[Rfam]
RNA sequence: UUAUAUUUUGCAAAUAUUUGGGGAGACACUGACUUUUCUCCCCGUGCUCUCCCAUUCCUCUCUGCGGAGUGCGCUGCGCCACCCAGCCCUGUCGCUUCCCAGGAGGUGAUCACUUGCCUCCUGCCUGCCCGCCAGCCUGACCUGUGCCCGGCUCGCGGGCCGCAGCCUCGGCUCCGGCGCACCCCCGGCAGCUCUCAGCGCGAUG
Numbered sequence: 001u002u003a004u005a006u007u008u009u010g011c012a013a014a015u016a017u018u019u020g021g022g023g024a025g026a027c028a029c030u031g032a033c034u035u036u037u038c039u040c041c042c043c044g045u046g047c048u049c050u051c052c053c054a055u056u057c058c059u060c061u062c063u064g065c066g067g068a069g070u071g072c073g074c075u076g077c078g079c080c081a082c083c084c085a086g087c088c089c090u091g092u093c094g095c096u097u098c099c100c101a102g103g104a105g106g107u108g109a110u111c112a113c114u115u116g117c118c119u120c121c122u123g124c125c126u127g128c129c130c131g132c133c134a135g136c137c138u139g140a141c142c143u144g145u146g147c148c149c150g151g152c153u154c155g156c157g158g159g160c161c162g163c164a165g166c167c168u169c170g171g172c173u174c175c176g177g178c179g180c181a182c183c184c185c186c187g188g189c190a191g192c193u194c195u196c197a198g199c200g201c202g203a204u205g
Base pairs, nucleotide, nucleotide: 023040024039025038026037043073044072045071046070047069048068049067050066076180077179078178079177080176102117104115105114106113127160128159129158130157131156132155134153135152136151137150

Shown here is a 205-nucleotide RNA from Echinops telfairi, a member of the family "Mnt IRES". About the family: This family represents the Mnt internal ribosome entry site (IRES). Gene Ontology term of the family: ribosome binding. It is one of the family's seed sequences.